[Rfam]
Source information: A member of the RNA family "Nitrogen stress-induced RNA 1" from Stenomitos frigidus, 53 nucleotides long.
RNA sequence: UGGUAGAUGCACCCUGAUAAUGGUCCUCGGCUCUUGUAGUCGGGGCUUUUUCU
Number, nucleotide and partner (000 for none) at each position: 001u000002g013003g012004u011005a000006g000007a000008u000009g000010c000011a004012c003013c002014c000015u000016g000017a000018u000019a000020a000021u000022g000023g000024u000025c045026c044027u043028c042029g041030g040031c039032u038033c000034u000035u000036g000037u000038a032039g031040u030041c029042g028043g027044g026045g025046c000047u000048u000049u000050u000051u000052c000053u000